The family of this 80-nucleotide RNA from Prolemur simus is "Y RNA". On this family, see Teunissen et al., Nucleic Acids Res 2000: "Conserved features of Y RNAs: a comparison of experimentally derived secondary structures". Y RNAs are components of the Ro ribonucleoprotein particle (Ro RNP), in association with Ro60 and La proteins. The source organism's lineage runs through Eukaryota, Metazoa, Vertebrata, Gnathostomata and Prolemur.

RNA sequence: AGUUGGUCCAAGGGUUGUGGGUUAUUGUUAAGCUGAUUUACCAUUGUUUCCCCCCAACAACCACGCUUGACUAGCUUUAC
Numbered sequence: 001a002g003u004u005g006g007u008c009c010a011a012g013g014g015u016u017g018u019g020g021g022u023u024a025u026u027g028u029u030a031a032g033c034u035g036a037u038u039u040a041c042c043a044u045u046g047u048u049u050c051c052c053c054c055c056a057a058c059a060a061c062c063a064c065g066c067u068u069g070a071c072u073a074g075c076u077u078u079a080c
Stems, first nucleotide, its partner, number of pairs: 001076008010068002014064002016059003020055002026043002030039002
Dot-bracket structure: ((((((((.((..(((((.((....((..((......))..))..........)).)))...))..))))))))))....